RNA sequence: GGUCAAGAGCGCCAGCGUCAAGCCCCGGCUCGCUGGCCGGCAACCCUCCUCCGCGGCGGGGUGCUCCGGGUGACGACCAGGCCGUCGCGGAACGCGCGUCGGCAAGCGCGGACC
Numbered sequence: 001g002g003u004c005a006a007g008a009g010c011g012c013c014a015g016c017g018u019c020a021a022g023c024c025c026c027g028g029c030u031c032g033c034u035g036g037c038c039g040g041c042a043a044c045c046c047u048c049c050u051c052c053g054c055g056g057c058g059g060g061g062u063g064c065u066c067c068g069g070g071u072g073a074c075g076a077c078c079a080g081g082c083c084g085u086c087g088c089g090g091a092a093c094g095c096g097c098g099u100c101g102g103c104a105a106g107c108g109c110g111g112a113c114c
Base pairs, nucleotide, nucleotide: 001078002077003076004075009038011037012036013035014034015033016032021030022029039065040064041063044061045060046059048056049055081103082102083101084100086098087097088096089095
Dot-bracket structure: ((((....(.((((((....((......)).)))))))(((..(((.((.....))..))).))).........))))..((((.((((.....)))).))))...........